[Rfam]
RNA: Small nucleolar RNA SNORA63
RNA sequence: AAGCAGGAUAAGUUAUGAUAUAGCUGUGCAGUGCUGUAUUAUCGUUCCCCCUGCUUAAAGAAAAAUGUUUCCUUCUAUCCCUACCUGCUUAGUUCCCACAGCAGGUAGGGACGCUGGGUUUCAUACAU
Numbered sequence: 001a002a003g004c005a006g007g008a009u010a011a012g013u014u015a016u017g018a019u020a021u022a023g024c025u026g027u028g029c030a031g032u033g034c035u036g037u038a039u040u041a042u043c044g045u046u047c048c049c050c051c052u053g054c055u056u057a058a059a060g061a062a063a064a065a066u067g068u069u070u071c072c073u074u075c076u077a078u079c080c081c082u083a084c085c086u087g088c089u090u091a092g093u094u095c096c097c098a099c100a101g102c103a104g105g106u107a108g109g110g111a112c113g114c115u116g117g118g119u120u121u122c123a124u125a126c127a128u
Base pairs, nucleotide, nucleotide: 003054004053005052006051007050015042016041017040018039019038020037021036022035023034024033080109081108082107083106085104086103087102088101